Rfam assigns this 98-nucleotide RNA to the family "che1 RNA".
It scores 64 bits against the family's covariance model.
[Rfam]
Nucleotides: 098
Base pairs, nucleotide, nucleotide: 001042002041003040004039005038006037007036008035014034016032017031018030019029050070051069052068053067054066055065056064057063
Number, partner (000 for none) and nucleotide at each position: 001042a002041g003040g004039g005038c006037a007036g008035g009000g010000g011000g012000g013000u014034a015000u016032c017031c018030g019029c020000g021000g022000u023000c024000c025000c026000a027000c028000g029019g030018c031017g032016g033000u034014u035008c036007c037006u038005g039004u040003c041002c042001u043000u044000c045000g046000a047000u048000c049000c050070g051069g052068c053067c054066g055065c056064g057063c058000g059000g060000c061000c062000c063057g064056c065055g066054c067053g068052g069051u070050c071000g072000c073000u074000g075000g076000u077000u078000g079000u080000c081000g082000c083000u084000c085000g086000g087000g088000g089000g090000u091000g092000a093000u094000c095000g096000c097000c098000g